Shown here is a 108-nucleotide sequence from Plutella xylostella, a member of the family "mir-8517 microRNA precursor family".
Pairs were carried over by alignment from the consensus structure, which was predicted with RNAalifold.
A search with the family's covariance model found it, with a score of 76 bits.
Lineage of the source: Eukaryota > Protostomia > Endopterygota > Heteroneura > Plutella.

[Rfam]
RNA sequence: UUAUAGGACGUUUUAGCUAUUGAACUGUUUUGUUCCAAUCUGUCAAAGUACUUUUUUUUCUUCGACAGAGAGGGACAAAAGAGAUCAAUAGCUAAAACGUACUAUAAC
Numbered sequence: 001u002u003a004u005a006g007g008a009c010g011u012u013u014u015a016g017c018u019a020u021u022g023a024a025c026u027g028u029u030u031u032g033u034u035c036c037a038a039u040c041u042g043u044c045a046a047a048g049u050a051c052u053u054u055u056u057u058u059u060c061u062u063c064g065a066c067a068g069a070g071a072g073g074g075a076c077a078a079a080a081g082a083g084a085u086c087a088a089u090a091g092c093u094a095a096a097a098c099g100u101a102c103u104a105u106a107a108c
Stems, first nucleotide, its partner, number of pairs: 001107006011097013025083002028080001029069006050058001